[Rfam]
RNA sequence: UACAACAUAUCCAAAGUAAUGAGCAUAAUAUCUAUUGAUAUACCUCACGAUAAAUUACGUUCACUACUUUGGAGAACGUUGUA
Numbered sequence: 001u002a003c004a005a006c007a008u009a010u011c012c013a014a015a016g017u018a019a020u021g022a023g024c025a026u027a028a029u030a031u032c033u034a035u036u037g038a039u040a041u042a043c044c045u046c047a048c049g050a051u052a053a054a055u056u057a058c059g060u061u062c063a064c065u066a067c068u069u070u071g072g073a074g075a076a077c078g079u080u081g082u083a
Stems, first nucleotide, its partner, number of pairs: 002082005008076001010073009020063003024059001026057003031054001033052002037046002
The family of this 83-nucleotide RNA sequence from Spodoptera exigua is "mir-2763 microRNA precursor family". Lineage of the source: Eukaryota > Bilateria > Amphiesmenoptera > Noctuoidea > Spodoptera.